A member of the RNA family "t44 RNA" from Shewanella benthica, 87 nucleotides long. On this family, see Tjaden et al., Nucleic Acids Res 2002: "Transcriptome analysis of Escherichia coli using high-density oligonucleotide probe arrays". Lineage of the source: Bacteria > Pseudomonadati > Pseudomonadota > Alteromonadales > Shewanella benthica. This family consists of a number of bacterial RNA genes of between 135 and 170 bases in length. The t44 gene has been identified in several species of enteric bacteria but homologs have also been identified in Pseudomonas and Coxiella species. It is one of the family's seed sequences.

[Rfam]
RNA sequence: UUUAUUAAAUACUAAAUCACACACGUAUCGACACAUUCUUCGGGGUGCCUGUAUAGGUCGAAGAUAUGGGAUGCGUGGAGGUCUAAC
Numbered sequence: 001u002u003u004a005u006u007a008a009a010u011a012c013u014a015a016a017u018c019a020c021a022c023a024c025g026u027a028u029c030g031a032c033a034c035a036u037u038c039u040u041c042g043g044g045g046u047g048c049c050u051g052u053a054u055a056g057g058u059c060g061a062a063g064a065u066a067u068g069g070g071a072u073g074c075g076u077g078g079a080g081g082u083c084u085a086a087c
Base pairs, nucleotide, nucleotide: 022077023076024075025074026073027072028071029070034068035067036066039062040061041060042059047058048057049056050055